[Rfam]
RNA sequence: UUCUUCUUGUCGGAGUGCCCUUAGGGGCUGAGACCGUUUAUUCGGGAUCCGCGGAACCUGAUCAGGUUAGUACCUGCGAAGGGAACAAGAGUAACGAUUCA
Numbered sequence: 001u002u003c004u005u006c007u008u009g010u011c012g013g014a015g016u017g018c019c020c021u022u023a024g025g026g027g028c029u030g031a032g033a034c035c036g037u038u039u040a041u042u043c044g045g046g047a048u049c050c051g052c053g054g055a056a057c058c059u060g061a062u063c064a065g066g067u068u069a070g071u072a073c074c075u076g077c078g079a080a081g082g083g084a085a086c087a088a089g090a091g092u093a094a095c096g097a098u099u100c101a
Stems, first nucleotide, its partner, number of pairs: 006089005011051004016045001017028004035044002057082003063076004
Annotation: TPP riboswitch aptamer (THI element): a 101-nucleotide RNA sequence from Erwinia tracheiphila. Gene Ontology term of the family: thiamine pyrophosphate binding. The match comes from Rfam's covariance-model search (76 bits).